The family of this 148-nucleotide RNA sequence from Schrenkiella parvula is "Small nucleolar RNA snoR145".
It is annotated as an H/ACA-box small nucleolar RNA.
For this family Rfam cites "Mining small RNA sequencing data: a new approach to identify small nucleolar RNAs in Arabidopsis" (Chen and Wu, Nucleic Acids Res, 2009).
It is one of the family's seed sequences.
Its family is annotated with RNA processing and nucleolus in the Gene Ontology.
The source organism's lineage runs through Eukaryota, Streptophyta, Euphyllophyta, Mesangiospermae and Schrenkiella.

RNA sequence: AAGCGAAGGACCCAGCAGGGAAGCGAGUAUACUCAUGAAAUGAGGCUUCUCUAACAAUUUAAUUAACCUUCGUAGAUUUAGUCUCGAGGAACUCUUUGAGGAUCUGUUUCUUUUUUCGCAGAUUGUCUUGUGUUCUUUGUGUAUAGUC
Number, nucleotide and partner (000 for none) at each position: 001a000002a000003g073004c072005g071006a070007a069008g068009g067010a000011c020012c019013c018014a000015g000016c000017a000018g013019g012020g011021a000022a000023g000024c000025g051026a050027g049028u000029a000030u000031a000032c044033u043034c042035a041036u040037g000038a000039a000040a036041u035042g034043a033044g032045g000046c000047u000048u000049c027050u026051c025052u000053a000054a000055c000056a000057a000058u000059u000060u000061a000062a000063u000064u000065a000066a000067c009068c008069u007070u006071c005072g004073u003074a000075g000076a000077u000078u000079u000080a000081g000082u000083c000084u000085c139086g138087a137088g136089g135090a134091a000092c000093u000094c000095u000096u000097u000098g127099a126100g000101g124102a123103u122104c121105u120106g119107u118108u000109u000110c000111u000112u000113u000114u000115u000116u000117c000118g107119c106120a105121g104122a103123u102124u101125g000126u099127c098128u000129u000130g000131u000132g000133u000134u090135c089136u088137u087138u086139g085140u000141g000142u000143a000144u000145a000146g000147u000148c000